This 74-nucleotide RNA from Nesospiza acunhae belongs to the Rfam family "U1A polyadenylation inhibition element (PIE)". This family represents the U1A polyadenylation inhibition element (PIE). PIE is a regulatory RNA which is responsible for the regulation of the length of the polyA tail of the U1A pre-mRNA. The PIE is located in the U1A mRNA 3' UTR. PIE adopts a U-shaped structure, with binding sites for a single U1A protein at each bend and when complexed with the two proteins it blocks activity of poly(A) polymerase (PAP), and inhibits its activity. NCBI's taxonomy places the organism under Eukaryota, Sarcopterygii, Tetrapoda, Amniota, Nesospiza. It scores 51 bits against the family's covariance model. Rfam links the family to the GO term regulation of mRNA polyadenylation.
RNA sequence: CUUCCCAGCAUUGUACCCAGGGUCUCUCUGCAGACAUUGCACCUGGAGCUGCCCCCACCCCAGACAAGCCCAAA
Number, nucleotide and partner (000 for none) at each position: 001c000002u000003u000004c000005c000006c051007a050008g049009c048010a000011u000012u000013g000014u000015a000016c000017c046018c045019a044020g043021g000022g035023u034024c033025u032026c000027u000028c000029u000030g000031c000032a025033g024034a023035c022036a000037u000038u000039g000040c000041a000042c000043c020044u019045g018046g017047a000048g009049c008050u007051g006052c000053c000054c000055c000056c000057a000058c000059c000060c000061c000062a000063g000064a000065c000066a000067a000068g000069c000070c000071c000072a000073a000074a000